Purine riboswitch aptamer: a 103-nucleotide sequence from Pseudothermotoga hypogea. From the family's description: Riboswitches are metabolite binding domains within certain messenger RNAs that serve as precision sensors for their corresponding targets. The family is grouped with related families in Rfam's "Purine riboswitches". The organism belongs to Pseudothermotoga hypogea, within Bacteria.
[Rfam]
RNA sequence: CCUCCCACAGGGAAAGGCCCUUGUAUAACCCCGGGAAUAAGGCUCGGGGGUCUCUACCGGACAGCCGUAAACUGUCCUGGCUACAAGGGCUCAUUUCUUUACC
Numbered sequence: 001c002c003u004c005c006c007a008c009a010g011g012g013a014a015a016g017g018c019c020c021u022u023g024u025a026u027a028a029c030c031c032c033g034g035g036a037a038u039a040a041g042g043c044u045c046g047g048g049g050g051u052c053u054c055u056a057c058c059g060g061a062c063a064g065c066c067g068u069a070a071a072c073u074g075u076c077c078u079g080g081c082u083a084c085a086a087g088g089g090c091u092c093a094u095u096u097c098u099u100u101a102c103c
Base pairs, nucleotide, nucleotide: 018089019088020087021086022085023084024083025082029049030048031047032046033045034044035043058079059077060076061075062074063073064072